Notes:
A member of the RNA family "Small nucleolar RNA Z266" from Thalictrum thalictroides, 105 nucleotides long. The base pairs follow the family's consensus structure, which was predicted with PFOLD. The match comes from Rfam's covariance-model search (58 bits). The literature on the family includes a 2003 paper in Nucleic Acids Res by Chen et al., "The high diversity of snoRNAs in plants: identification and comparative study of 120 snoRNA genes from Oryza sativa". Lineage of the source: Eukaryota > Ranunculales > Ranunculaceae > Thalictroideae > Thalictrum. Rfam classes the family as a C/D-box small nucleolar RNA.

[Rfam]
RNA sequence: AAGUGGCAGAAUGAUGAUUCAAUUAGAUGUAUGAAGAAGAAAUUAGUUUUUCUUUCUCAUGAAUUUAAAAUUCUUGAGGCAUAAUUUUGUCUGACCUGCUUGCUU
Number, nucleotide and partner (000 for none) at each position: 001a105002a104003g103004u102005g100006g099007c098008a097009g096010a000011a000012u000013g000014a000015u000016g000017a000018u000019u000020c000021a000022a000023u000024u000025a000026g000027a000028u000029g000030u000031a000032u000033g000034a000035a000036g000037a000038a000039g000040a000041a000042a000043u000044u000045a000046g000047u000048u000049u000050u000051u000052c000053u000054u000055u000056c000057u000058c000059a000060u000061g000062a000063a000064u000065u000066u000067a000068a000069a000070a000071u000072u000073c000074u000075u000076g000077a000078g000079g000080c000081a000082u000083a000084a000085u000086u000087u000088u000089g000090u000091c000092u000093g000094a000095c000096c009097u008098g007099c006100u005101u000102g004103c003104u002105u001